[Rfam]
RNA sequence: AGAUGAUAAAGGCAAACUUAUCGAAAGUUAAGGACGCAAAGCUUCAGGUCUACGGCUAUUAAUAGUUAUGACGGCUGAGUUACCGAU
Numbered sequence: 001a002g003a004u005g006a007u008a009a010a011g012g013c014a015a016a017c018u019u020a021u022c023g024a025a026a027g028u029u030a031a032g033g034a035c036g037c038a039a040a041g042c043u044u045c046a047g048g049u050c051u052a053c054g055g056c057u058a059u060u061a062a063u064a065g066u067u068a069u070g071a072c073g074g075c076u077g078a079g080u081u082a083c084c085g086a087u
Base pairs, nucleotide, nucleotide: 012037013036017032018031019030020029022027040081041080042079043078045077046076047075048072049071050070055066056065057064058063
This 87-nucleotide sequence from Bacillus solimangrovi belongs to the Rfam family "c-di-GMP-I riboswitch aptamer".
Its family is annotated with cyclic-di-GMP binding in the Gene Ontology.
The source organism's lineage runs through Bacteria, Bacillota, Bacilli, Caryophanales and Bacillus.
A search with the family's covariance model found it, with a score of 84 bits.